This 87-nucleotide RNA from Populus trichocarpa belongs to the Rfam family "MIR1444 microRNA precursor family". A reference for the family is Lu et al. (2008), "Stress-responsive microRNAs in Populus", Plant J. The family has 3 seed sequences and 15 matches in Rfam 15.1. The base pairs follow the family's consensus structure, which was predicted with WAR.
[Rfam]
RNA sequence: UUUAUCACUUGAAUGUUGACCGAAUAUGGAUGAAAAGUUGUUUUCUGUUUCCUUUCCUCCACAUUCGGUCAAUGUUCCAGUGAUGAG
Numbered sequence: 001u002u003u004a005u006c007a008c009u010u011g012a013a014u015g016u017u018g019a020c021c022g023a024a025u026a027u028g029g030a031u032g033a034a035a036a037g038u039u040g041u042u043u044u045c046u047g048u049u050u051c052c053u054u055u056c057c058u059c060c061a062c063a064u065u066c067g068g069u070c071a072a073u074g075u076u077c078c079a080g081u082g083a084u085g086a087g
Stems, first nucleotide, its partner, number of pairs: 001087006008080002011077003016072010027061002030058001032056004036050001